[Rfam]
RNA sequence: AGUUUUCUUCGGAAACGAGAUAUUUCUCUACUGGCGGUAACAGUCCGCGAGCGAUCAGCUAAUCCGGUGGAAUUCCGGAGCCAACAGGUUCGGUCUGGAGGGGAGAAGAAGGCU
Numbered sequence: 001a002g003u004u005u006u007c008u009u010c011g012g013a014a015a016c017g018a019g020a021u022a023u024u025u026c027u028c029u030a031c032u033g034g035c036g037g038u039a040a041c042a043g044u045c046c047g048c049g050a051g052c053g054a055u056c057a058g059c060u061a062a063u064c065c066g067g068u069g070g071a072a073u074u075c076c077g078g079a080g081c082c083a084a085c086a087g088g089u090u091c092g093g094u095c096u097g098g099a100g101g102g103g104a105g106a107a108g109a110a111g112g113c114u
Base pairs, nucleotide, nucleotide: 003112004111005110006109007108008107009106010105017028018027019026030094031093032083033082034048035047036046037045043081044080051059052058063079064078065077066076067075085097086096087095